[Rfam]
RNA sequence: CAUCGGGAAAGGAGGUGGUCCAGAAGUGAGUUCUCUUCGGACGCGAGAGGUGACUGUCCGCUAGUCGCCCGAACCACUCGGACGGACUGACCGAGCUCGGAGCCUCGUACGGCUGGCGAGUUCCCGGCAGUCACCGCAGCCCGUGGGAGCCGCGAUCUCGUCCAUCGCGGCAGGGUCCACCCAGACCCGGCCCACGGGCUGUUCCCU
Numbered sequence: 001c002a003u004c005g006g007g008a009a010a011g012g013a014g015g016u017g018g019u020c021c022a023g024a025a026g027u028g029a030g031u032u033c034u035c036u037u038c039g040g041a042c043g044c045g046a047g048a049g050g051u052g053a054c055u056g057u058c059c060g061c062u063a064g065u066c067g068c069c070c071g072a073a074c075c076a077c078u079c080g081g082a083c084g085g086a087c088u089g090a091c092c093g094a095g096c097u098c099g100g101a102g103c104c105u106c107g108u109a110c111g112g113c114u115g116g117c118g119a120g121u122u123c124c125c126g127g128c129a130g131u132c133a134c135c136g137c138a139g140c141c142c143g144u145g146g147g148a149g150c151c152g153c154g155a156u157c158u159c160g161u162c163c164a165u166c167g168c169g170g171c172a173g174g175g176u177c178c179a180c181c182c183a184g185a186c187c188c189g190g191c192c193c194a195c196g197g198g199c200u201g202u203u204c205c206c207u
Stems, first nucleotide, its partner, number of pairs: 014058006059118009070107003137201011151169006
RNA: Actinobacteria sRNA Ms_IGR-5